[Rfam]
RNA: Small nucleolar RNA U6-53/MBII-28
RNA sequence: CUCCGAUGAUGAUCCCGCCAUGCUAAUACUGAUGUAUCAGACUGACAGUGUGUCUAUCUGGGUACAAGUGAGUUAAACUCACCUUCUCAUACUGACUUGGUCAGUGUGGGCUGAGGAGA
Numbered sequence: 001c002u003c004c005g006a007u008g009a010u011g012a013u014c015c016c017g018c019c020a021u022g023c024u025a026a027u028a029c030u031g032a033u034g035u036a037u038c039a040g041a042c043u044g045a046c047a048g049u050g051u052g053u054c055u056a057u058c059u060g061g062g063u064a065c066a067a068g069u070g071a072g073u074u075a076a077a078c079u080c081a082c083c084u085u086c087u088c089a090u091a092c093u094g095a096c097u098u099g100g101u102c103a104g105u106g107u108g109g110g111c112u113g114a115g116g117a118g119a
Base pairs, nucleotide, nucleotide: 001118002117003116004115044054045053046052